[Rfam]
This 63-nucleotide sequence from Haloglomus irregulare belongs to the Rfam family "eL15-Euryarchaeota ribosomal protein leader".
The source organism's lineage runs through Archaea, Methanobacteriati, Halobacteria, Natronomonadaceae and Haloglomus.
The match comes from Rfam's covariance-model search (41 bits).
Pairs were carried over by alignment from the consensus structure, which is taken from published work.
For this family Rfam cites "Discovery of 20 novel ribosomal leader candidates in bacteria and archaea" (Eckert and Weinberg, BMC Microbiol, 2020).
RNA sequence: CCUGCCACGGCAGGAUGGAAUGUGGCCGGCGGGGGCAGAGCCCCCGACAGGCUGAACCACGCA
Numbered sequence: 001c002c003u004g005c006c007a008c009g010g011c012a013g014g015a016u017g018g019a020a021u022g023u024g025g026c027c028g029g030c031g032g033g034g035g036c037a038g039a040g041c042c043c044c045c046g047a048c049a050g051g052c053u054g055a056a057c058c059a060c061g062c063a
Base pairs, nucleotide, nucleotide: 001014002013003012004011005010016059017058018057024053025052026051027050